The family of this 62-nucleotide RNA from Peromyscus maniculatus is "Gag/pol translational readthrough site".
The source organism's lineage runs through Eukaryota, Chordata, Vertebrata, Glires and Peromyscus maniculatus.
A reference for the family is ten Dam et al. (1990), "RNA pseudoknots: translational frameshifting and readthrough on viral RNAs", Virus Genes.
The family's consensus secondary structure is taken from published work.

[Rfam]
RNA sequence: UAGGUGAGUCAGGGCCAGGAGCCUCCCCCUGAGCCCCGGGUAACUCUUAAAGUGGGAGGCCA
Number, nucleotide and partner (000 for none) at each position: 001u000002a000003g000004g000005u000006g000007a000008g041009u040010c039011a000012g036013g035014g034015c033016c031017a030018g029019g028020a000021g000022c000023c059024u058025c000026c056027c055028c019029c018030u017031g016032a000033g015034c014035c013036c012037c000038g000039g010040g009041u008042a000043a000044c000045u000046c000047u000048u000049a000050a000051a000052g000053u000054g000055g027056g026057a000058g024059g023060c000061c000062a000